[Rfam]
RNA sequence: GGGUGUUCGGCCGCGCGAUGCGACCGGGCAGGCUUUCCAUGCCGGUCGGGCCGCCGGUA
Dot-bracket structure: ....((((((.(.........).))))))..........(((((((......)))))))
The family of this 59-nucleotide RNA from Neoroseomonas lacus is "nhaA-I RNA". The organism belongs to Neoroseomonas, within Bacteria. By type it is a riboswitch. About the family: Acidobacteria, Alphaproteobacteria, Betaproteobacteria and Gammaproteobacteria, Verrucomicrobia, cand. division NC10.